[Rfam]
RNA sequence: GUUCUAUGAUGGCAAUAUUUUUCAUCAACAUCAGUUUUCUUAGUGAGUGUUGAUACUUUGGGUCUGAGGGU
Number, nucleotide and partner (000 for none) at each position: 001g000002u070003u069004c068005u000006a000007u000008g026009a025010u024011g023012g000013c000014a000015a000016u000017a000018u000019u000020u000021u000022u000023c011024a010025u009026c008027a000028a000029c000030a000031u000032c000033a000034g000035u000036u000037u000038u000039c000040u000041u000042a000043g000044u000045g000046a000047g000048u000049g000050u000051u000052g000053a000054u000055a000056c000057u000058u000059u000060g000061g000062g000063u000064c000065u000066g000067a000068g004069g003070g002071u000

This 71-nucleotide sequence from Ursus americanus belongs to the Rfam family "Small nucleolar RNA SNORD56". Lineage of the source: Eukaryota > Bilateria > Caniformia > Ursidae > Ursus. Pairs were carried over by alignment from the consensus structure, which was predicted with PFOLD. On this family, see Galardi et al., Mol Cell Biol 2002: "Purified box C/D snoRNPs are able to reproduce site-specific 2'-O-methylation of target RNA in vitro".